[Rfam]
RNA sequence: UCACUCUUGUUUCUCUUCAUAUCGUAUAAAUCUUUCGCCUUUUACUAAAGAUUUCCGUGGAGAGGAACAUUAUGAGUACAAUCUAAUUUUUUGUGUCCUACCGUUAGGUAGGAC
Numbered sequence: 001u002c003a004c005u006c007u008u009g010u011u012u013c014u015c016u017u018c019a020u021a022u023c024g025u026a027u028a029a030a031u032c033u034u035u036c037g038c039c040u041u042u043u044a045c046u047a048a049a050g051a052u053u054u055c056c057g058u059g060g061a062g063a064g065g066a067a068c069a070u071u072a073u074g075a076g077u078a079c080a081a082u083c084u085a086a087u088u089u090u091u092u093g094u095g096u097c098c099u100a101c102c103g104u105u106a107g108g109u110a111g112g113a114c
Stems, first nucleotide, its partner, number of pairs: 003077004009068011028054008096113006
U5 spliceosomal RNA: a 114-nucleotide RNA from Ameiurus melas. The family's RNA type in Rfam is spliceosomal small nuclear RNA. The family has 180 seed sequences and 28,527 matches in Rfam 15.1. From the family's description: U5 RNA is a component of both types of known spliceosome. The precise function of this molecule is unknown, though it is known that the 5' loop is required for splice site selection and p220 binding, and that both the 3' stem-loop and the Sm site are important for Sm protein binding and cap methylation.